[Rfam]
RNA sequence: GGGGAGCAUCCAAGAGUUGAGAUGCUUCUUGAUACAAUCUUCCUAAAGAAAAGAUUGGUAAUUUCCUGCUUGUGGUUCUUGUAAAAAGCUCUGCAAGUCUCAAAUUACCAGACAUUCGA
Numbered sequence: 001g002g003g004g005a006g007c008a009u010c011c012a013a014g015a016g017u018u019g020a021g022a023u024g025c026u027u028c029u030u031g032a033u034a035c036a037a038u039c040u041u042c043c044u045a046a047a048g049a050a051a052a053g054a055u056u057g058g059u060a061a062u063u064u065c066c067u068g069c070u071u072g073u074g075g076u077u078c079u080u081g082u083a084a085a086a087a088g089c090u091c092u093g094c095a096a097g098u099c100u101c102a103a104a105u106u107a108c109c110a111g112a113c114a115u116u117c118g119a
Stems, first nucleotide, its partner, number of pairs: 001030003005026006055112002068098008078088002

Shown here is a 119-nucleotide RNA sequence from Macleaya cordata, a member of the family "Small nucleolar RNA snoR104". Taxonomically the source falls in Macleaya (Eukaryota, Embryophyta, Tracheophyta, Papaveraceae). Pairs were carried over by alignment from the consensus structure, which was predicted with WAR. Rfam links the family to the GO terms nucleolus and RNA processing.